[Rfam]
RNA sequence: CCGCUGCUCCGCGACUGGCGCUGAAGAUGGAGUCCCAUCGGGAAGCGGGGUCCGGCCGAUGGCCGGCACGAGCCGCGCGCCUGGGUGAUCCAU
Dot-bracket structure: .....(((((((..(([[[[[.....((((....))))..))..)))))))....................(((..]]]]]..))).......
Numbered sequence: 001c002c003g004c005u006g007c008u009c010c011g012c013g014a015c016u017g018g019c020g021c022u023g024a025a026g027a028u029g030g031a032g033u034c035c036c037a038u039c040g041g042g043a044a045g046c047g048g049g050g051u052c053c054g055g056c057c058g059a060u061g062g063c064c065g066g067c068a069c070g071a072g073c074c075g076c077g078c079g080c081c082u083g084g085g086u087g088a089u090c091c092a093u
Stems, first nucleotide, its partner, number of pairs: 006051007015042002017081005027038004072086003
Overview: ZMP/ZTP riboswitch aptamer (pfl RNA motif): a 93-nucleotide RNA from Sphingopyxis sp. MG. The match comes from Rfam's covariance-model search (43 bits). Taxonomically the source falls in Sphingopyxis (Bacteria, Pseudomonadati, Pseudomonadota, Sphingomonadales).